This 98-nucleotide sequence from Treponema denticola belongs to the Rfam family "TD-2 RNA". Pairs were carried over by alignment from the consensus structure, which is taken from published work. The source organism's lineage runs through Bacteria, Spirochaetota, Treponematales, Treponemataceae and Treponema denticola. The family's RNA type in Rfam is small RNA.
RNA sequence: ACCGGCACGGAUGCCGGUGGUUUAAACUUACGAGUUUUUUGCGAAGCAAAAAUACUCGAAGCUGAAAAAUGUACAAGGACGUACAUUUUUCAGCGGUU
Numbered sequence: 001a002c003c004g005g006c007a008c009g010g011a012u013g014c015c016g017g018u019g020g021u022u023u024a025a026a027c028u029u030a031c032g033a034g035u036u037u038u039u040u041g042c043g044a045a046g047c048a049a050a051a052a053u054a055c056u057c058g059a060a061g062c063u064g065a066a067a068a069a070u071g072u073a074c075a076a077g078g079a080c081g082u083a084c085a086u087u088u089u090u091c092a093g094c095g096g097u098u
Stems, first nucleotide, its partner, number of pairs: 001018006031058005036052006061094014